RNA sequence: AGCCGAGUAGUGAACACAACGCGAACUAUUCUUUCGCCUUUUACUAAAGAAUACCGUGUGUUCGUUACUUAAAUCGGCAUACGCCAAUUUUUGUACAGUUUCUUUCCUUUGGAGAGAAC
Numbered sequence: 001a002g003c004c005g006a007g008u009a010g011u012g013a014a015c016a017c018a019a020c021g022c023g024a025a026c027u028a029u030u031c032u033u034u035c036g037c038c039u040u041u042u043a044c045u046a047a048a049g050a051a052u053a054c055c056g057u058g059u060g061u062u063c064g065u066u067a068c069u070u071a072a073a074u075c076g077g078c079a080u081a082c083g084c085c086a087a088u089u090u091u092u093g094u095a096c097a098g099u100u101u102c103u104u105u106c107c108u109u110u111g112g113a114g115a116g117a118a119c
Stems, first nucleotide, its partner, number of pairs: 003077004008067011027053008100118006
Notes
The record is a 119-nucleotide sequence from Cephalotus follicularis, which matches "U5 spliceosomal RNA" in Rfam. Its family is annotated with U5 snRNP and spliceosomal tri-snRNP complex assembly in the Gene Ontology. U5 RNA is a component of both types of known spliceosome.